[Rfam]
RNA: c-di-AMP riboswitch aptamer (ydaO/yuaA leader)
Organism: Modestobacter sp. DSM 44400
RNA sequence: GACCGGACGCCGCCGAACCACCGCGCUCGCGCACUUCGCGGGCCGUGGACCGGGGACCCACCGCAGCACCGGGGUGAAGCACGCCGGCUCGCCAGAGCCGGAGUGCCGGGCGUCUUCCCGCCCGAACCCGUCAGCUAACUCGGUAGGCGGCUCGUGGAAGAAAG
Number, nucleotide and partner (000 for none) at each position: 001g000002a000003c000004c000005g000006g000007a000008c000009g000010c000011c149012g148013c147014c146015g000016a000017a000018c048019c047020a046021c000022c000023g000024c000025g000026c000027u000028c000029g000030c000031g000032c000033a000034c000035u000036u000037c000038g000039c000040g000041g000042g000043c000044c000045g000046u020047g019048g018049a144050c143051c142052g141053g140054g139055g000056a000057c000058c000059c071060a000061c000062c000063g000064c000065a000066g000067c000068a000069c000070c000071g059072g129073g128074g127075u000076g000077a000078a000079g000080c105081a104082c103083g000084c000085c000086g000087g000088c000089u000090c000091g000092c000093c000094a000095g000096a000097g000098c000099c000100g000101g000102a000103g082104u081105g080106c000107c000108g123109g122110g121111c120112g000113u000114c000115u000116u000117c000118c000119c000120g111121c110122c109123c108124g000125a000126a000127c074128c073129c072130g000131u000132c000133a000134g000135c000136u000137a000138a000139c054140u053141c052142g051143g050144u049145a000146g014147g013148c012149g011150g000151c000152u000153c000154g000155u000156g000157g000158a000159a000160g000161a000162a000163a000164g000